[Rfam]
RNA sequence: CACCCCAUGGUGAAGAUAGGCAUUUUGGGAGCGGGCUAGUACACCCCGCAAGGGGCGCUGGAACGUCCGUACAGCUAAAAGGAG
Numbered sequence: 001c002a003c004c005c006c007a008u009g010g011u012g013a014a015g016a017u018a019g020g021c022a023u024u025u026u027g028g029g030a031g032c033g034g035g036c037u038a039g040u041a042c043a044c045c046c047c048g049c050a051a052g053g054g055g056c057g058c059u060g061g062a063a064c065g066u067c068c069g070u071a072c073a074g075c076u077a078a079a080a081g082g083a084g
Base pairs, nucleotide, nucleotide: 001012002011003010004009019076020075021074031070032069033068034067035066036065042060043059044055045054046053
Dot-bracket structure: ((((....))))......(((.........((((((.....(((((......)))...))....))))))...)))........

This 84-nucleotide RNA sequence belongs to the Rfam family "RT-18 RNA".